RNA sequence: CAAUCCAUCCUGCUCCGAGCGGAACCGUCUAAGGGCUACGGCCUAUGACGCUCCGCCGCCGGGUCCCGCGCGGGCUCCGGUCUGGGUCGUAUCGGAAACGGUGCGGCCUUCCGUCUUUGAAAAGGGGCUGCUUUCGCUGGAAC
Numbered sequence: 001c002a003a004u005c006c007a008u009c010c011u012g013c014u015c016c017g018a019g020c021g022g023a024a025c026c027g028u029c030u031a032a033g034g035g036c037u038a039c040g041g042c043c044u045a046u047g048a049c050g051c052u053c054c055g056c057c058g059c060c061g062g063g064u065c066c067c068g069c070g071c072g073g074g075c076u077c078c079g080g081u082c083u084g085g086g087u088c089g090u091a092u093c094g095g096a097a098a099c100g101g102u103g104c105g106g107c108c109u110u111c112c113g114u115c116u117u118u119g120a121a122a123a124g125g126g127g128c129u130g131c132u133u134u135c136g137c138u139g140g141a142a143c
Stems, first nucleotide, its partner, number of pairs: 004136001012128005019056005025050001027049003033044004058081005084109011110120002
The record is a 143-nucleotide RNA sequence from Lawsonibacter hominis, which matches "Molybdenum/Tungsten riboswitch aptamer (Moco RNA motif)" in Rfam. The family has 160 seed sequences and 1,248 matches in Rfam 15.1. It scores 79 bits against the family's covariance model. The source organism's lineage runs through Bacteria, Bacillota, Eubacteriales, Oscillospiraceae and Lawsonibacter.